[Rfam]
RNA sequence: AGGUUAAUGCUAAUUGUGAUAGGGGUUGUGUUCGACCAAACACCUAACAUGUUAGCAUUAGCUU
Numbered sequence: 001a002g003g004u005u006a007a008u009g010c011u012a013a014u015u016g017u018g019a020u021a022g023g024g025g026u027u028g029u030g031u032u033c034g035a036c037c038a039a040a041c042a043c044c045u046a047a048c049a050u051g052u053u054a055g056c057a058u059u060a061g062c063u064u
Stems, first nucleotide, its partner, number of pairs: 004061011020046004025041003
mir-155 microRNA precursor family: a 64-nucleotide sequence from Cynoglossus semilaevis. It scores 63 bits against the family's covariance model. The organism belongs to Cynoglossus, within Eukaryota.